[Rfam]
RNA sequence: UCGCCUGGUCAGUUUUGCUGGUUUGCAUUCAGCUUUAACAGAUGUGUGCUGUGCAAAUCCAUGCAAAACUGAUUAUGCUG
Numbered sequence: 001u002c003g004c005c006u007g008g009u010c011a012g013u014u015u016u017g018c019u020g021g022u023u024u025g026c027a028u029u030c031a032g033c034u035u036u037a038a039c040a041g042a043u044g045u046g047u048g049c050u051g052u053g054c055a056a057a058u059c060c061a062u063g064c065a066a067a068a069c070u071g072a073u074u075a076u077g078c079u080g
Stems, first nucleotide, its partner, number of pairs: 003078002006075013020060002022057007031050003
The family of this 80-nucleotide sequence from Xiphophorus maculatus is "mir-19 microRNA precursor family". Rfam 15.1 lists 2,337 matches to the family in 651 species. Rfam links the family to the GO terms miRNA-mediated post-transcriptional gene silencing and RISC complex. The family is grouped with related families in Rfam's "mir-19 clan". A search with the family's covariance model found it, with a score of 78 bits.